[Rfam]
A member of the RNA family "U1 spliceosomal RNA" from Chionoecetes opilio, 163 nucleotides long. The source organism's lineage runs through Eukaryota, Protostomia, Malacostraca, Pleocyemata and Chionoecetes. The match comes from Rfam's covariance-model search (119 bits).
RNA sequence: AUACUUACCUGGCACAGGAGAACCGCGAUCCUGAAGGCGGUUUUCUCAGGGAGAGGCCCACCAUUGCACUCCGGCGGGGUUGACCCUUGCGAUUAACCCAAAUGUGAUUAACUCGAGAGCGAAUUUUUUUGUUAGCGGGGAAUUGCGUUCGUGCAUCCCCCUU
Numbered sequence: 001a002u003a004c005u006u007a008c009c010u011g012g013c014a015c016a017g018g019a020g021a022a023c024c025g026c027g028a029u030c031c032u033g034a035a036g037g038c039g040g041u042u043u044u045c046u047c048a049g050g051g052a053g054a055g056g057c058c059c060a061c062c063a064u065u066g067c068a069c070u071c072c073g074g075c076g077g078g079g080u081u082g083a084c085c086c087u088u089g090c091g092a093u094u095a096a097c098c099c100a101a102a103u104g105u106g107a108u109u110a111a112c113u114c115g116a117g118a119g120c121g122a123a124u125u126u127u128u129u130u131g132u133u134a135g136c137g138g139g140g141a142a143u144u145g146c147g148u149u150c151g152u153g154c155a156u157c158c159c160c161c162u163u
Base pairs, nucleotide, nucleotide: 012120013119015117017046018045019044020043021042022041023040024039025038026037048088049087050086051085053084055081056080057079058077059076061074062073090115091114092113093111094110095109098106137161138160139159140158144155145154146153147152

Pairs were carried over by alignment from the consensus structure, which is taken from published work. From the family's description: U1 is a small nuclear RNA (snRNA) component of the spliceosome (involved in pre-mRNA splicing). Its 5' end forms complementary base pairs with the 5' splice junction, thus defining the 5' donor site of an intron. There are significant differences in sequence and secondary structure between metazoan and yeast U1 snRNAs, the latter being much longer (568 nucleotides as compared to 164 nucleotides in human). Nevertheless, secondary structure predictions suggest that all U1 snRNAs share a 'common core' consisting of helices I, II, the proximal region of III, and IV. This family does not contain the larger yeast sequences.